[Rfam]
The record is a 156-nucleotide RNA from Callithrix jacchus, which matches "U1 spliceosomal RNA" in Rfam.
The source organism's lineage runs through Eukaryota, Opisthokonta, Teleostomi, Boreoeutheria and Callithrix.
From the family's description: U1 is a small nuclear RNA (snRNA) component of the spliceosome (involved in pre-mRNA splicing).
Rfam links the family to the GO terms U1 snRNP, mRNA 5'-splice site recognition and pre-mRNA 5'-splice site binding.
It is annotated as a spliceosomal small nuclear RNA.
It scores 134 bits against the family's covariance model.
RNA sequence: AUACUUACCUGGCAAGGGAGAUACCAUGAUCACGAAGGUGGUUUUCCCAGGGCGAGGCUUAUCCAUUGCACUCCGGAUGUGCUGACCCCUGCGAUUUCCUCAAACGUGGGAAACUCGACUGCAUGAUUUGCGGCGGUGAGGGACUGCGUUCCCUCU
Numbered sequence: 001a002u003a004c005u006u007a008c009c010u011g012g013c014a015a016g017g018g019a020g021a022u023a024c025c026a027u028g029a030u031c032a033c034g035a036a037g038g039u040g041g042u043u044u045u046c047c048c049a050g051g052g053c054g055a056g057g058c059u060u061a062u063c064c065a066u067u068g069c070a071c072u073c074c075g076g077a078u079g080u081g082c083u084g085a086c087c088c089c090u091g092c093g094a095u096u097u098c099c100u101c102a103a104a105c106g107u108g109g110g111a112a113a114c115u116c117g118a119c120u121g122c123a124u125g126a127u128u129u130g131c132g133g134c135g136g137u138g139a140g141g142g143a144c145u146g147c148g149u150u151c152c153c154u155c156u
Stems, first nucleotide, its partner, number of pairs: 012122003016048006023042005049090004054086001056083003060079005092117003095113003099109002146155001148153001
Dot-bracket structure: ...........(((.((((((.(((((..........)))))))))))((((.(.(((.(((((..........))))).)))..))))).((((((.((.......)).))).)))..))).......................(.(....).).